[Rfam]
RNA sequence: UGAUGGGGUAGAGGCGCAGUUAGCCACAAGUAGCUUCAGUAAGCAAUUAAGGUAUAGUUUGAUUUGAAGUAAACAGGGUAACUGCCGAAACUCUAGAAGUUCUGUAACUUUUAGAGUUGGGCUAAUACUUAAUAGGUAUUAGACUGUCACUAAAUAUAUCUUUAGUGAAGUGCUAUCUCAUGU
Numbered sequence: 001u002g003a004u005g006g007g008g009u010a011g012a013g014g015c016g017c018a019g020u021u022a023g024c025c026a027c028a029a030g031u032a033g034c035u036u037c038a039g040u041a042a043g044c045a046a047u048u049a050a051g052g053u054a055u056a057g058u059u060u061g062a063u064u065u066g067a068a069g070u071a072a073a074c075a076g077g078g079u080a081a082c083u084g085c086c087g088a089a090a091c092u093c094u095a096g097a098a099g100u101u102c103u104g105u106a107a108c109u110u111u112u113a114g115a116g117u118u119g120g121g122c123u124a125a126u127a128c129u130u131a132a133u134a135g136g137u138a139u140u141a142g143a144c145u146g147u148c149a150c151u152a153a154a155u156a157u158a159u160c161u162u163u164a165g166u167g168a169a170g171u172g173c174u175a176u177c178u179c180a181u182g183u
Base pairs, nucleotide, nucleotide: 006178007177008176009175010174011173016085017084018083019082020081021080022079024077033070034069035068036067037066038065039064089118090117091116092115093114094113095112096111097110098109099108100107119145120144122142123141124140125139126138127137128136129135147168148167149166150165151164152163153162
The family of this 183-nucleotide RNA sequence from Acetohalobium arabaticum is "Lysine riboswitch aptamer". Gene Ontology term of the family: lysine biosynthetic process. The family's consensus secondary structure is taken from published work. The source organism's lineage runs through Bacteria, Halanaerobiales, Halobacteroidaceae, Acetohalobium and Acetohalobium arabaticum. About the family: Riboswitches are metabolite binding domains within certain messenger RNAs that serve as precision sensors for their corresponding targets. Allosteric rearrangement of mRNA structure is mediated by ligand binding, and this results in modulation of gene expression. This family includes riboswitches that sense lysine in a number of genes involved in lysine metabolism, including lysC.